[Rfam]
RNA: mir-9193 microRNA precursor family
RNA sequence: UGUGCAUUGGUGGGGUCCCUCGGCCUGGCCUGUGGACAUCCCUCGAGGGGUCCUGGAUUAUGAGAGGGUGCAGGCCAGGCCAAGGGACCCCACCGGUGCAAG
Numbered sequence: 001u002g003u004g005c006a007u008u009g010g011u012g013g014g015g016u017c018c019c020u021c022g023g024c025c026u027g028g029c030c031u032g033u034g035g036a037c038a039u040c041c042c043u044c045g046a047g048g049g050g051u052c053c054u055g056g057a058u059u060a061u062g063a064g065a066g067g068g069u070g071c072a073g074g075c076c077a078g079g080c081c082a083a084g085g086g087a088c089c090c091c092a093c094c095g096g097u098g099c100a101a102g
Base pairs, nucleotide, nucleotide: 003100004099006097008095009094010093012091013090014089015088016087017086018085019084020083022081023080024079025078027076028075029074030073031072032071033070034069